RNA sequence: AGACGGAACUCUGGAGAGACCGUAAUGGCGCCGAAGGGGCAAGGUGAUGUGUUAGUACGUCACUCAAACUCUCAGGCAAAAGGACAGAGCAUAGGAA
Numbered sequence: 001a002g003a004c005g006g007a008a009c010u011c012u013g014g015a016g017a018g019a020c021c022g023u024a025a026u027g028g029c030g031c032c033g034a035a036g037g038g039g040c041a042a043g044g045u046g047a048u049g050u051g052u053u054a055g056u057a058c059g060u061c062a063c064u065c066a067a068a069c070u071c072u073c074a075g076g077c078a079a080a081a082g083g084a085c086a087g088a089g090c091a092u093a094g095g096a097a
Base pairs, nucleotide, nucleotide: 006092009089010088011087012086013085020028021027022026030077031076032075033073034072037071038070039069043064044063045062046061047060048059049058050057051056

Record summary
Glycine riboswitch aptamer: a 97-nucleotide sequence from Streptococcus sp. zg-36. The organism belongs to Streptococcus, within Bacteria. It scores 61 bits against the family's covariance model.